This 224-nucleotide sequence from Streptomyces sp. VN1 belongs to the Rfam family "Streptomyces sRNA 4677". Rfam's curators write: Located in the intergenic region between anti-sigma factor SCO4677 gene and a putative regulatory protein gene SCO4676. scr4677 expression requires the SCO4677 activity and scr4677 sRNA itself seem to affect the levels of the SCO4676-associated transcripts. The family's RNA type in Rfam is small RNA.
[Rfam]
RNA sequence: GGGGCCGGUGGGCCGCUGACCUCCUCAAAGAACCGGGUAGAGAACUACCCGCCCACCCACCCUCCACGCGCCCGGAGUUGGCCGUCACUCGUCCGAGUGACCCGCUUGCAGGCGCCCGAUUCGGGCGGCUACGUUCGCCGCAACGAACGCACACAAGUCGGCCCCCGCCAAGGAUUCGCAGUCCCGGCGAGGGCCUGACCGAUCAGGAAGUCGACACCUUCCCA
Numbered sequence: 001g002g003g004g005c006c007g008g009u010g011g012g013c014c015g016c017u018g019a020c021c022u023c024c025u026c027a028a029a030g031a032a033c034c035g036g037g038u039a040g041a042g043a044a045c046u047a048c049c050c051g052c053c054c055a056c057c058c059a060c061c062c063u064c065c066a067c068g069c070g071c072c073c074g075g076a077g078u079u080g081g082c083c084g085u086c087a088c089u090c091g092u093c094c095g096a097g098u099g100a101c102c103c104g105c106u107u108g109c110a111g112g113c114g115c116c117c118g119a120u121u122c123g124g125g126c127g128g129c130u131a132c133g134u135u136c137g138c139c140g141c142a143a144c145g146a147a148c149g150c151a152c153a154c155a156a157g158u159c160g161g162c163c164c165c166c167g168c169c170a171a172g173g174a175u176u177c178g179c180a181g182u183c184c185c186g187g188c189g190a191g192g193g194c195c196u197g198a199c200c201g202a203u204c205a206g207g208a209a210g211u212c213g214a215c216a217c218c219u220u221c222c223c224a
Stems, first nucleotide, its partner, number of pairs: 001203001004200001011072003015069001085100006111139004160195005166189003206222005